[Rfam]
This 38-nucleotide RNA sequence from Salibacterium salarium belongs to the Rfam family "Selenocysteine insertion sequence 4". The base pairs follow the family's consensus structure, which was predicted with PFOLD. Gene Ontology term of the family: selenocysteine incorporation. Taxonomically the source falls in Salibacterium (Bacteria, Bacillota, Bacilli, Caryophanales). The family's RNA type in Rfam is cis-regulatory element. The match comes from Rfam's covariance-model search (45 bits).
RNA sequence: GGAACUAGCACUCGCUGCGGGGCAGCGAUGGUCAAAGA
Numbered sequence: 001g002g003a004a005c006u007a008g009c010a011c012u013c014g015c016u017g018c019g020g021g022g023c024a025g026c027g028a029u030g031g032u033c034a035a036a037g038a
Stems, first nucleotide, its partner, number of pairs: 005031002013027006